A member of the RNA family "L31-Actinobacteria ribosomal protein leader" from Nocardioides sp. Root1257, 49 nucleotides long.
A search with the family's covariance model found it, with a score of 48 bits.
For this family Rfam cites "Discovery of 20 novel ribosomal leader candidates in bacteria and archaea" (Eckert and Weinberg, BMC Microbiol, 2020).
By type it is a cis-regulatory leader.

RNA sequence: UCGGCUCCGGUUCACGCCUCCUCGCAGGGAGCGAGGCGACCCGGCGGCU
Numbered sequence: 001u002c003g004g005c006u007c008c009g010g011u012u013c014a015c016g017c018c019u020c021c022u023c024g025c026a027g028g029g030a031g032c033g034a035g036g037c038g039a040c041c042c043g044g045c046g047g048c049u
Base pairs, nucleotide, nucleotide: 003049004048005047007044008043009042010041015038016037017036018035019034020033022031